[Rfam]
This 133-nucleotide RNA from Ictidomys tridecemlineatus belongs to the Rfam family "Small nucleolar RNA SNORA14".
Pairs were carried over by alignment from the consensus structure, which was predicted with RNAfold.
The family's RNA type in Rfam is H/ACA-box small nucleolar RNA.
Its family is annotated with RNA processing and nucleolus in the Gene Ontology.
Lineage of the source: Eukaryota > Metazoa > Vertebrata > Gnathostomata > Ictidomys.
ACA14 is a member of the H/ACA class of snoRNA that guide the sites of modification of uridines to pseudouridines.

RNA sequence: UUGCAUUCUUAAACCCUCUUGGCGGCUUCGCCUAGUGCUUCCAAGAUAUGAGUGAAUGCUAGAGAAAUUGCGGGGGAGUCCAAAGGGCUGCGCCUCUCUCGUGGCUCAGCCUCAUUUCAUACCUGCGACAUCU
Numbered sequence: 001u002u003g004c005a006u007u008c009u010u011a012a013a014c015c016c017u018c019u020u021g022g023c024g025g026c027u028u029c030g031c032c033u034a035g036u037g038c039u040u041c042c043a044a045g046a047u048a049u050g051a052g053u054g055a056a057u058g059c060u061a062g063a064g065a066a067a068u069u070g071c072g073g074g075g076g077a078g079u080c081c082a083a084a085g086g087g088c089u090g091c092g093c094c095u096c097u098c099u100c101g102u103g104g105c106u107c108a109g110c111c112u113c114a115u116u117u118c119a120u121a122c123c124u125g126c127g128a129c130a131u132c133u
Base pairs, nucleotide, nucleotide: 003059004058005057006056008052009051010050011049017046018045019044020043021042022041024039025038026037063133064132065131068128069127070126071125072124073123074122085112086111087110088109089108090107092105093104096101